[Rfam]
RNA sequence: GGGGCAUUAGCUCAGCUGGCUAGAGCGCUACGCUGGCAGCGUAGAGGUCAUCGGUUCGACUCCGAUAUGCUCCA
Numbered sequence: 001g002g003g004g005c006a007u008u009a010g011c012u013c014a015g016c017u018g019g020c021u022a023g024a025g026c027g028c029u030a031c032g033c034u035g036g037c038a039g040c041g042u043a044g045a046g047g048u049c050a051u052c053g054g055u056u057c058g059a060c061u062c063c064g065a066u067a068u069g070c071u072c073c074a
Stems, first nucleotide, its partner, number of pairs: 001073007010026004028044005050066005